[Rfam]
Description
DUF3800-IX RNA: a 69-nucleotide RNA. The family's RNA type in Rfam is small RNA. The family's consensus secondary structure is taken from published work. It is one of the family's seed sequences. Actinobacteria, Firmicutes (1 example), Nitrospirae, Proteobacteria, Verrucomicrobia (1 example).
RNA sequence: UACCCAGGCUCGAACCGUCCCCGUAUGGGGUGCUUGCCAAGCAAUCGCUUGGAUAGGUCUGGGGAAGCG
Numbered sequence: 001u002a003c004c005c006a007g008g009c010u011c012g013a014a015c016c017g018u019c020c021c022c023g024u025a026u027g028g029g030g031u032g033c034u035u036g037c038c039a040a041g042c043a044a045u046c047g048c049u050u051g052g053a054u055a056g057g058u059c060u061g062g063g064g065a066a067g068c069g
Base pairs, nucleotide, nucleotide: 001065003063004062005061006060007059010057011056017033018032019030020029021028022027037052038051039050040049